[Rfam]
RNA sequence: GAUUAGCCCCGAUUGCAGUGGUUAUCCUUUUUGUGAGUUGUUAUUGGUGCGAGAGCAAAAAGAUAGUAACGGAAAGCGGGACUUCCC
Dot-bracket structure: ........(((.((...((...((((..((((((....................)))))).))))...))...)).)))........